[Rfam]
RNA sequence: GGGGGUGACUGGUUUCGACUUCGUACGUGGAGACAGGGGAAGCGAGCCGAGGAAGCCGACGUCGUCUCGAGAAUCGGUCGUCGGAAAACUAUAAGCGCCAACGAUAAGUUUGACGCUGACCAGUACGCUCUCGCCGCCUGAGGCAAGUAGCGUGGUCUGUCGGUCUGGGAGCGCCUCCGUCCCAGCUACCGGCAUCAGCUAGGAGGCUGGCCAAUGGGUCCCGGUCACGGGGACCCGGCGGCGAGAUCAAUCAGUGACUGGGCCCGUCAUCCGAACUUGCUCACGUGAGUCGGAGGGCCGAGUAGAGGCAUAGUGAGCUGCGCUCGGAGAAGCCCUGACAAAGCAACGAAGGACCCGGGUUCGAUUCCCGGCACCUCCACGA
Numbered sequence: 001g002g003g004g005g006u007g008a009c010u011g012g013u014u015u016c017g018a019c020u021u022c023g024u025a026c027g028u029g030g031a032g033a034c035a036g037g038g039g040a041a042g043c044g045a046g047c048c049g050a051g052g053a054a055g056c057c058g059a060c061g062u063c064g065u066c067u068c069g070a071g072a073a074u075c076g077g078u079c080g081u082c083g084g085a086a087a088a089c090u091a092u093a094a095g096c097g098c099c100a101a102c103g104a105u106a107a108g109u110u111u112g113a114c115g116c117u118g119a120c121c122a123g124u125a126c127g128c129u130c131u132c133g134c135c136g137c138c139u140g141a142g143g144c145a146a147g148u149a150g151c152g153u154g155g156u157c158u159g160u161c162g163g164u165c166u167g168g169g170a171g172c173g174c175c176u177c178c179g180u181c182c183c184a185g186c187u188a189c190c191g192g193c194a195u196c197a198g199c200u201a202g203g204a205g206g207c208u209g210g211c212c213a214a215u216g217g218g219u220c221c222c223g224g225u226c227a228c229g230g231g232g233a234c235c236c237g238g239c240g241g242c243g244a245g246a247u248c249a250a251u252c253a254g255u256g257a258c259u260g261g262g263c264c265c266g267u268c269a270u271c272c273g274a275a276c277u278u279g280c281u282c283a284c285g286u287g288a289g290u291c292g293g294a295g296g297g298c299c300g301a302g303u304a305g306a307g308g309c310a311u312a313g314u315g316a317g318c319u320g321c322g323c324u325c326g327g328a329g330a331a332g333c334c335c336u337g338a339c340a341a342a343g344c345a346a347c348g349a350a351g352g353a354c355c356c357g358g359g360u361u362c363g364a365u366u367c368c369c370g371g372c373a374c375c376u377c378c379a380c381g382a
Base pairs, nucleotide, nucleotide: 001378002377003376004375005374006373007372019351020350021349022348023347024346028342032339034337035336036335037334038333043326044325045324046323047322048069049068050067051066052065056084057083058082059081060080061079129155130154132152133151134150136148137147158194159193160192161191162190163189165185166184167183168182169181170180173207174206175205176204177203178202210242211241212240215237216236217235218234223259224258225257226256227255228254261299262298263297264296265295267294268293275290276289277288279318280317281316282315286312287311355371356370357369358368359367
RNA: transfer-messenger RNA
Organism: Actinoplanes italicus